[Rfam]
RNA sequence: CCCUGUAGACACGGGAGUCCCGGGAGCGGGGUCUGAGAGUGGGCGCGCCUGCCCUUACCGUCACACCUGAUCCGGAUCAUGCCGGCGAAGGGAGGUCAAGGAUGGCGUCCG
Number, nucleotide and partner (000 for none) at each position: 001c000002c000003c000004u000005g000006u099007a000008g097009a096010c095011a061012c060013g059014g058015g000016a056017g033018u000019c031020c030021c029022g000023g000024g000025a000026g000027c000028g000029g021030g020031g019032u000033c017034u000035g000036a000037g000038a000039g000040u000041g054042g053043g052044c051045g000046c000047g000048c000049c000050u000051g044052c043053c042054c041055u000056u016057a000058c014059c013060g012061u011062c000063a000064c000065a000066c091067c090068u089069g000070a000071u000072c085073c084074g083075g082076a000077u000078c000079a000080u000081g000082c075083c074084g073085g072086c000087g000088a000089a068090g067091g066092g000093a000094g000095g010096u009097c008098a000099a006100g000101g000102a000103u000104g000105g000106c000107g000108u000109c000110c000111g000
The record is a 111-nucleotide RNA sequence from Mycobacterium tuberculosis, which matches "TPP riboswitch aptamer (THI element)" in Rfam.